[Rfam]
RNA: JUMPstart RNA
RNA sequence: AGGCAUUUUGGGAGCCUAAAUCCAAGGGCGGUAGCGUG
Numbered sequence: 001a002g003g004c005a006u007u008u009u010g011g012g013a014g015c016c017u018a019a020a021u022c023c024a025a026g027g028g029c030g031g032u033a034g035c036g037u038g
Stems, first nucleotide, its partner, number of pairs: 008025005